[Rfam]
RNA sequence: UAUGCAAGUGACGAUAAAGACAGACAGGGACAUCAGCACCCAUUGGAGGAUGAUGAGUUGUCUAAAAUGGGAAUCUCUCUGAUGCACA
Numbered sequence: 001u002a003u004g005c006a007a008g009u010g011a012c013g014a015u016a017a018a019g020a021c022a023g024a025c026a027g028g029g030a031c032a033u034c035a036g037c038a039c040c041c042a043u044u045g046g047a048g049g050a051u052g053a054u055g056a057g058u059u060g061u062c063u064a065a066a067a068u069g070g071g072a073a074u075c076u077c078u079c080u081g082a083u084g085c086a087c088a
Base pairs, nucleotide, nucleotide: 003086004085005084006083
This 88-nucleotide RNA sequence from Gossypium australe belongs to the Rfam family "Small nucleolar RNA R44/J54/Z268 family". Its Rfam clan is "SNORD74 clan". It scores 72 bits against the family's covariance model. Pairs were carried over by alignment from the consensus structure, which was predicted with PFOLD.